[Rfam]
RNA sequence: UUUUUCUCGUUCCCUUGUCAUUCUCCCGCCCGGUGGUAAAUGACAACUGGACGGAGAACUGAUAAGGGCUCGAGGAGAC
Numbered sequence: 001u002u003u004u005u006c007u008c009g010u011u012c013c014c015u016u017g018u019c020a021u022u023c024u025c026c027c028g029c030c031c032g033g034u035g036g037u038a039a040a041u042g043a044c045a046a047c048u049g050g051a052c053g054g055a056g057a058a059c060u061g062a063u064a065a066g067g068g069c070u071c072g073a074g075g076a077g078a079c
Base pairs, nucleotide, nucleotide: 012068013067014066015065016064017063018062019061020060021058022057023056024055025054026053029050030049
RNA: mir-184 microRNA precursor family